[Rfam]
RNA sequence: AGCCACACAGAAAGCACAAAGCGAACUAUUCUUUCGCUUUUUUACUAAAGAAUACCAUAUGAUCACUGCAAUUAGUGGCAUACGCCAUUUCUUGGAGGGGUUCGUGCUAUCGCAUGAA
Numbered sequence: 001a002g003c004c005a006c007a008c009a010g011a012a013a014g015c016a017c018a019a020a021g022c023g024a025a026c027u028a029u030u031c032u033u034u035c036g037c038u039u040u041u042u043u044a045c046u047a048a049a050g051a052a053u054a055c056c057a058u059a060u061g062a063u064c065a066c067u068g069c070a071a072u073u074a075g076u077g078g079c080a081u082a083c084g085c086c087a088u089u090u091c092u093u094g095g096a097g098g099g100g101u102u103c104g105u106g107c108u109a110u111c112g113c114a115u116g117a118a
Stems, first nucleotide, its partner, number of pairs: 003078004008068003013063001015061002018058001027054008101118006
RNA: U5 spliceosomal RNA
Organism: Capsicum annuum